[Rfam]
RNA: Small nucleolar RNA SNORD45
Organism: Mesitornis unicolor
RNA sequence: GGUCGGUGAUGCACCGGCAUGUAUUACCUGACCUGAGGUGAUGACCAAUGCUCAUUGGCUCUAGAGUUACUCUGAGGCCCC
Numbered sequence: 001g002g003u004c005g006g007u008g009a010u011g012c013a014c015c016g017g018c019a020u021g022u023a024u025u026a027c028c029u030g031a032c033c034u035g036a037g038g039u040g041a042u043g044a045c046c047a048a049u050g051c052u053c054a055u056u057g058g059c060u061c062u063a064g065a066g067u068u069a070c071u072c073u074g075a076g077g078c079c080c081c
Stems, first nucleotide, its partner, number of pairs: 001079004
Dot-bracket structure: ((((.......................................................................))))..